[Rfam]
RNA sequence: CCGUCGAUCCUGGGGUGGCACGGCGCUGCGAGCGCACGGGCCUGAGACGCGGAACGCGAACCCAUUGAACCUGAUCCGGCUAGUACCGGCGUAGGGACGGACGCUUCAUUUCGA
Number, nucleotide and partner (000 for none) at each position: 001c000002c000003g000004u000005c000006g102007a000008u100009c099010c000011u064012g063013g062014g061015g000016u058017g042018g041019c040020a000021c038022g000023g000024c000025g000026c000027u000028g000029c000030g000031a000032g000033c000034g000035c000036a000037c000038g021039g000040g019041c018042c017043u000044g000045a000046g000047a000048c000049g057050c056051g055052g000053a000054a000055c051056g050057c049058g016059a000060a000061c014062c013063c012064a011065u000066u000067g000068a000069a000070c095071c094072u093073g092074a000075u000076c089077c088078g087079g086080c000081u000082a000083g000084u000085a000086c079087c078088g077089g076090c000091g000092u073093a072094g071095g070096g000097a000098c000099g009100g008101a000102c006103g000104c000105u000106u000107c000108a000109u000110u000111u000112c000113g000114a000
The family of this 114-nucleotide RNA sequence from Marinihelvus fidelis is "TPP riboswitch aptamer (THI element)". Rfam links the family to the GO term thiamine pyrophosphate binding.